Background
Shown here is a 54-nucleotide RNA from Aeromonas schubertii, a member of the family "L31-Gammaproteobacteria ribosomal protein leader". Lineage of the source: Bacteria > Pseudomonadota > Gammaproteobacteria > Aeromonadaceae > Aeromonas. Its Rfam clan is "Ribosomal Protein L31 Leader clan".
[Rfam]
RNA sequence: CGUGUGGUGUCCGACCCAAGGCUCGGAUGGCGACACGGCCUAUAUCUUUGAGGU
Numbered sequence: 001c002g003u004g005u006g007g008u009g010u011c012c013g014a015c016c017c018a019a020g021g022c023u024c025g026g027a028u029g030g031c032g033a034c035a036c037g038g039c040c041u042a043u044a045u046c047u048u049u050g051a052g053g054u
Base pairs, nucleotide, nucleotide: 001037002036003035004034005033007031008030011026012025013024014023016021

For this family Rfam cites "Discovery of 20 novel ribosomal leader candidates in bacteria and archaea" (Eckert and Weinberg, BMC Microbiol, 2020).
The sequence is in the family's curated seed alignment.
By type it is a cis-regulatory leader.